[Rfam]
RNA sequence: UUCUUAUUAAGAGAGACUGAGGGACUGGCCCUUUGAUGUCCGGCAACCUGAAAUUAUGUUUCAAGGUGCUAAUUCCAGCAGAUAUUAUAUCUGAGAGAUAAGAA
Numbered sequence: 001u002u003c004u005u006a007u008u009a010a011g012a013g014a015g016a017c018u019g020a021g022g023g024a025c026u027g028g029c030c031c032u033u034u035g036a037u038g039u040c041c042g043g044c045a046a047c048c049u050g051a052a053a054u055u056a057u058g059u060u061u062c063a064a065g066g067u068g069c070u071a072a073u074u075c076c077a078g079c080a081g082a083u084a085u086u087a088u089a090u091c092u093g094a095g096a097g098a099u100a101a102g103a104a
Stems, first nucleotide, its partner, number of pairs: 001104008013041001015040003021031003025078004042070004047066002049063004074096001079093006
RNA: SAM riboswitch aptamer (S box leader)